This 209-nucleotide sequence from Clostridium argentinense belongs to the Rfam family "T-box leader". On this family, see Gerdeman et al., J Mol Biol 2003: "Solution structure of the Bacillus subtilis T-box antiterminator RNA: seven nucleotide bulge characterized by stacking and flexibility". Uncharged tRNA acts as the effector for transcription antitermination of genes in the T-box leader family. T-boxes are found upstream of many aminoacyl-tRNA synthetase genes and some amino acid biosynthetic genes usually in Gram-positive bacteria. The anticodon of a specific tRNA base pairs to a specifier sequence within the T-box motif, and the NCCA acceptor tail of the tRNA base pairs to a conserved bulge in the T-box antiterminator hairpin. The source organism's lineage runs through Bacteria, Bacillati, Clostridia, Clostridium and Clostridium argentinense.
[Rfam]
RNA sequence: AAAACAGUGAUUAUAAAAGCUACGAUUUAUGAAUUUCUUCAGAGAGCCGAUGGAUGGUGUGAAUCGGUGAAAGGCUAAAUCUUUCCACUUUUGGAGCUGUCGGUGAUGAAUCGAAAGGGUGGUAUCCUCUAUAAUACUAAUUUCGAGUGGCUGAUUUUUAGUAUUUAUCAGCAAUUUGGGUGGCAACGCGGAUACCUUCCGUCCCAGUU
Dot-bracket structure: ......((......((((.....(((((......(((........((((((...........))))))))).....))))).......))))...))..(((((.....))))).(((.......))).....................((((((...........))))))....((((.......(((((.....)))))))))...
The match comes from Rfam's covariance-model search (93 bits).